[Rfam]
RNA: Nuclear RNase P
Organism: Echinops telfairi
RNA sequence: GGAGGGAAGCUCAUCGGUGGAGCUCUGAGCUGAGUGCUGUGUCAUGCUGUACCCUGUCCCUUGGGAAGGUCUGAGACUAGGGCAGCAGCAGCCCUUACAGGUCCUCCCUGAGCUCGGGCGCUGAGCGCCUGAGAAGGCUCCGCCGGGGCAGACUGGGCAGGAGAAGCAGUGGAGCUUGGAACAGACUCCCAGCCGGCAAAUGAGUUCAAUGACUGAGAUGGGGCAUCUUUUUGGGGCUUCAUAACCCAAUUCAGCUUGUUCUCCCCGGUCC
Number, nucleotide and partner (000 for none) at each position: 001g271002g270003a269004g000005g264006g263007a262008a000009g000010c217011u216012c215013a214014u000015c000016g000017g000018u000019g061020g060021a000022g058023c000024u000025c000026u000027g000028a000029g000030c000031u000032g047033a000034g045035u044036g043037c041038u000039g000040u000041g037042u000043c036044a035045u034046g000047c032048u000049g000050u000051a000052c000053c000054c000055u000056g000057u000058c022059c000060c020061u019062u000063g000064g000065g000066a000067a000068g000069g000070u000071c254072u253073g252074a251075g250076a000077c000078u000079a000080g000081g194082g193083c192084a000085g000086c000087a000088g000089c000090a000091g103092c000093c101094c100095u000096u000097a000098c000099a000100g094101g093102u000103c091104c000105u120106c000107c118108c117109u116110g115111a000112g000113c000114u000115c110116g109117g108118g107119c000120g105121c000122u000123g188124a187125g186126c184127g000128c000129c000130u000131g000132a000133g000134a000135a000136g000137g175138c174139u173140c000141c000142g000143c000144c000145g000146g000147g000148g000149c000150a000151g000152a000153c000154u000155g000156g000157g000158c000159a000160g000161g000162a000163g000164a000165a000166g000167c000168a000169g000170u000171g000172g000173a139174g138175c137176u000177u000178g000179g000180a000181a000182c000183a000184g126185a000186c125187u124188c123189c000190c000191a000192g083193c082194c081195g000196g000197c000198a000199a000200a000201u000202g000203a000204g000205u000206u000207c000208a000209a000210u000211g000212a000213c000214u013215g012216a011217g010218a242219u241220g240221g239222g238223g237224c236225a000226u000227c000228u000229u000230u000231u000232u000233g000234g000235g000236g224237c223238u222239u221240c220241a219242u218243a000244a000245c000246c000247c000248a000249a000250u075251u074252c073253a072254g071255c000256u000257u000258g000259u000260u000261c000262u007263c006264c005265c000266c000267g000268g000269u003270c002271c001